[Rfam]
RNA sequence: AUCGAGAGGUUGUGCGGGCAGGCGCUUCGCCAACCCGGUCAGGUCCGGAAGGAAGCAGCCGUAACGAUUCCCGCCUGGGUCGUUGCAAUCUCUCACCCCA
Dot-bracket structure: ...(((((((.((((...((((((..(((......((((....(((....)))....))))...)))....)))))))..))).))...)))))......
RNA: Bacterial small signal recognition particle RNA